[Rfam]
RNA sequence: CCUUGACAGUCGCAUACUGCGGCUGACACUAGCCAAGACAAGGAGUUCCCAUG
Numbered sequence: 001c002c003u004u005g006a007c008a009g010u011c012g013c014a015u016a017c018u019g020c021g022g023c024u025g026a027c028a029c030u031a032g033c034c035a036a037g038a039c040a041a042g043g044a045g046u047u048c049c050c051a052u053g
Stems, first nucleotide, its partner, number of pairs: 002042004007025005

Rfam assigns this 53-nucleotide RNA to the family "Mu-gpT-DE RNA". The family's consensus secondary structure is taken from published work. Rfam's curators put it in the seed alignment.